[Rfam]
Record summary:
Plant signal recognition particle RNA: a 303-nucleotide sequence from Lathyrus oleraceus. The family's consensus secondary structure is taken from published work. By type it is a non-coding RNA gene.

RNA sequence: GUCGAGUUGAGUAGCGCCAGCUUGUGAUCCAUGUGGGGGAAUCAAGGUGAUGGAACAUGGCUAAACCUUAACAGGUUGGUCUGGUGGUUGCACCGUGGUGGCCUGCCCGCUCCAAGUUGCGAGUUGGCCCAUGCGACUUGUGCGAAGGCACCUGUCUUAUGGGUCUUAGACGGGAGGGUAUAAUGUGAGACUGGUUUCACAGAGCAACGAACACUUCCUACUCUUGACAUUGGAAGGAUCAGGGGCCGUUGUACCUCUAGUGCACAACACCUGGUGAGCCUAGCCCCUUGAACCAUCUCUUUU
Numbered sequence: 001g002u003c004g005a006g007u008u009g010a011g012u013a014g015c016g017c018c019a020g021c022u023u024g025u026g027a028u029c030c031a032u033g034u035g036g037g038g039g040a041a042u043c044a045a046g047g048u049g050a051u052g053g054a055a056c057a058u059g060g061c062u063a064a065a066c067c068u069u070a071a072c073a074g075g076u077u078g079g080u081c082u083g084g085u086g087g088u089u090g091c092a093c094c095g096u097g098g099u100g101g102c103c104u105g106c107c108c109g110c111u112c113c114a115a116g117u118u119g120c121g122a123g124u125u126g127g128c129c130c131a132u133g134c135g136a137c138u139u140g141u142g143c144g145a146a147g148g149c150a151c152c153u154g155u156c157u158u159a160u161g162g163g164u165c166u167u168a169g170a171c172g173g174g175a176g177g178g179u180a181u182a183a184u185g186u187g188a189g190a191c192u193g194g195u196u197u198c199a200c201a202g203a204g205c206a207a208c209g210a211a212c213a214c215u216u217c218c219u220a221c222u223c224u225u226g227a228c229a230u231u232g233g234a235a236g237g238a239u240c241a242g243g244g245g246c247c248g249u250u251g252u253a254c255c256u257c258u259a260g261u262g263c264a265c266a267a268c269a270c271c272u273g274g275u276g277a278g279c280c281u282a283g284c285c286c287c288u289u290g291a292a293c294c295a296u297c298u299c300u301u302u303u
Stems, first nucleotide, its partner, number of pairs: 002039002004023006028037003044302004049297005056290002059286002061283003066278001068277003072273005078263001081260004086255001089253002098249007107237002111234004116228004121223004126165008135156003140151004172219006184209003191202003

The organism belongs to Lathyrus, within Eukaryota.